[Rfam]
RNA sequence: AGGUGACUAAUGCCCAUAAGGGGUCUUUCCCGAAAGAAUGAUGCCCGUGGAUGUGGGAUGGGACAAGUAGGGGGAGAUUCACCA
Dot-bracket structure: .(((((.................((((((((............(((((....)))))............)))))))).))))).
Numbered sequence: 001a002g003g004u005g006a007c008u009a010a011u012g013c014c015c016a017u018a019a020g021g022g023g024u025c026u027u028u029c030c031c032g033a034a035a036g037a038a039u040g041a042u043g044c045c046c047g048u049g050g051a052u053g054u055g056g057g058a059u060g061g062g063a064c065a066a067g068u069a070g071g072g073g074g075a076g077a078u079u080c081a082c083c084a
Stems, first nucleotide, its partner, number of pairs: 002083005024077008044057005
Rfam assigns this 84-nucleotide sequence to the family "DUF3800-X RNA". It is annotated as a small RNA.